Shown here is a 586-nucleotide part of an RNA from Leucobacter chromiisoli, a member of the family "Bacterial large subunit ribosomal RNA".
RNA sequence: CGCGCAGAAGGACGGAAAGACCCCGUGACCUUUACUACAGCUUGGUAUUGGUGUUCGGUGUGGCUUGUGUAGGAUAGGUGGGAGACUGUGAAGCGGUGACGCUAGUUAUCGUGGAGUCGUUGUUGAAAUACCACUCUGGUCAUAUUGGAUAUCUAACUACGGACCCUGAUCGGGUUCUGGGACAGUGCCUGGUGGGUAGUUUAACUGGGGCGGUUGCCUCCCAAAAUGUAACGGAGGCGCCCAAAGGUUCCCUCAACCUGGUUGGCAAUCAGGUGGCGAGUGUAAGUGCACAAGGGAGCUUGACUGUGAGACUGACAGGUCGAGCAGGGACGAAAGUCGGGACUAGUGAUCCGGCAGUGGCUUGUGGAAGCGCUGUCGCUCAACGGAUAAAAGGUACCUCGGGGAUAACAGGCUGAUCUUGCCCAAGAGUCCAUAUCGACGGCAUGGUUUGGCACCUCGAUGUCGGCUCGUCGCAUCCUGGGGCUGGAGUUGGUCCCAAGGGUUGGGCUGUUCGCCCAUUAAAGCGGUACGCGAGCUGGGUUUAGAACGUCGUGAGACAGUUCGGUCCCUAUCCUCUGCGCGCGUU
Numbered sequence: 001c002g003c004g005c006a007g008a009a010g011g012a013c014g015g016a017a018a019g020a021c022c023c024c025g026u027g028a029c030c031u032u033u034a035c036u037a038c039a040g041c042u043u044g045g046u047a048u049u050g051g052u053g054u055u056c057g058g059u060g061u062g063g064c065u066u067g068u069g070u071a072g073g074a075u076a077g078g079u080g081g082g083a084g085a086c087u088g089u090g091a092a093g094c095g096g097u098g099a100c101g102c103u104a105g106u107u108a109u110c111g112u113g114g115a116g117u118c119g120u121u122g123u124u125g126a127a128a129u130a131c132c133a134c135u136c137u138g139g140u141c142a143u144a145u146u147g148g149a150u151a152u153c154u155a156a157c158u159a160c161g162g163a164c165c166c167u168g169a170u171c172g173g174g175u176u177c178u179g180g181g182a183c184a185g186u187g188c189c190u191g192g193u194g195g196g197u198a199g200u201u202u203a204a205c206u207g208g209g210g211c212g213g214u215u216g217c218c219u220c221c222c223a224a225a226a227u228g229u230a231a232c233g234g235a236g237g238c239g240c241c242c243a244a245a246g247g248u249u250c251c252c253u254c255a256a257c258c259u260g261g262u263u264g265g266c267a268a269u270c271a272g273g274u275g276g277c278g279a280g281u282g283u284a285a286g287u288g289c290a291c292a293a294g295g296g297a298g299c300u301u302g303a304c305u306g307u308g309a310g311a312c313u314g315a316c317a318g319g320u321c322g323a324g325c326a327g328g329g330a331c332g333a334a335a336g337u338c339g340g341g342a343c344u345a346g347u348g349a350u351c352c353g354g355c356a357g358u359g360g361c362u363u364g365u366g367g368a369a370g371c372g373c374u375g376u377c378g379c380u381c382a383a384c385g386g387a388u389a390a391a392a393g394g395u396a397c398c399u400c401g402g403g404g405a406u407a408a409c410a411g412g413c414u415g416a417u418c419u420u421g422c423c424c425a426a427g428a429g430u431c432c433a434u435a436u437c438g439a440c441g442g443c444a445u446g447g448u449u450u451g452g453c454a455c456c457u458c459g460a461u462g463u464c465g466g467c468u469c470g471u472c473g474c475a476u477c478c479u480g481g482g483g484c485u486g487g488a489g490u491u492g493g494u495c496c497c498a499a500g501g502g503u504u505g506g507g508c509u510g511u512u513c514g515c516c517c518a519u520u521a522a523a524g525c526g527g528u529a530c531g532c533g534a535g536c537u538g539g540g541u542u543u544a545g546a547a548c549g550u551c552g553u554g555a556g557a558c559a560g561u562u563c564g565g566u567c568c569c570u571a572u573c574c575u576c577u578g579c580g581c582g583c584g585u586u
Stems, first nucleotide, its partner, number of pairs: 001582008010574003014569002022403004027398001028395005034200004041192002044189004050153016067136001077135005084118003093112008157180003161177006203215004216238006239384001241341002247299006253279002256274006280289002304327004310321003329338003352378007360371002412453003416450001417447002420444004427437002464539001465537004469531001470528005477502002480497006504518005545563004549558003